[Rfam]
About this RNA: Shown here is a 100-nucleotide sequence from Elizabethkingia argenteiflava, a member of the family "SAM riboswitch aptamer (S box leader)".
RNA sequence: AUGUUAUCAGGAAAGGCUGAGGGAAUAGACCCUAUGACGCCUUAGCAACCCUUCGCCUGCCGAAGAAGGUGCUACAUUCUACCAAUUGGAAAGAUAACCA
Numbered sequence: 001a002u003g004u005u006a007u008c009a010g011g012a013a014a015g016g017c018u019g020a021g022g023g024a025a026u027a028g029a030c031c032c033u034a035u036g037a038c039g040c041c042u043u044a045g046c047a048a049c050c051c052u053u054c055g056c057c058u059g060c061c062g063a064a065g066a067a068g069g070u071g072c073u074a075c076a077u078u079c080u081a082c083c084a085a086u087u088g089g090a091a092a093g094a095u096a097a098c099c100a
Base pairs, nucleotide, nucleotide: 003098004097005096006095007094008093013043014042015041016040017039021032022031023030026081027080028079029078044073045072046071047070049069050068051065052064053063054062077092082089083088
Dot-bracket structure: ..((((((....(((((...(((..[[[[)))......)))))((((.((((((.......))))..))))))...(]]]]((....))..)))))))..

Pairs were carried over by alignment from the consensus structure, which is taken from published work.
Taxonomically the source falls in Elizabethkingia (Bacteria, Flavobacteriia, Flavobacteriales, Weeksellaceae).
The match comes from Rfam's covariance-model search (74 bits).